[Rfam]
Rfam assigns this 134-nucleotide RNA sequence from Crocuta crocuta to the family "Small nucleolar RNA SNORA42/SNORA80 family". It scores 80 bits against the family's covariance model. NCBI's taxonomy places the organism under Eukaryota, Deuterostomia, Laurasiatheria, Hyaenidae, Crocuta.

RNA sequence: GCAUGGUGAUGGACUGAUGACAGCCUUUCUCUGUGGGCUUUUCAUAGUGGGCCAGUGUCAGAGGUGCAUUCAGCCCCAAACCAUUGCCCAACCUCCUCACCAGUAGGCUGAGAGCACUGAAGGGGGCUGUACAG
Numbered sequence: 001g002c003a004u005g006g007u008g009a010u011g012g013a014c015u016g017a018u019g020a021c022a023g024c025c026u027u028u029c030u031c032u033g034u035g036g037g038c039u040u041u042u043c044a045u046a047g048u049g050g051g052c053c054a055g056u057g058u059c060a061g062a063g064g065u066g067c068a069u070u071c072a073g074c075c076c077c078a079a080a081c082c083a084u085u086g087c088c089c090a091a092c093c094u095c096c097u098c099a100c101c102a103g104u105a106g107g108c109u110g111a112g113a114g115c116a117c118u119g120a121a122g123g124g125g126g127c128u129g130u131a132c133a134g
Stems, first nucleotide, its partner, number of pairs: 001058004005053003015047001017045004022040001023038001024036002071129006082119002087114001089110002092107003
Its family is annotated with RNA processing and nucleolus in the Gene Ontology.
The family's consensus secondary structure was predicted with RNAalifold.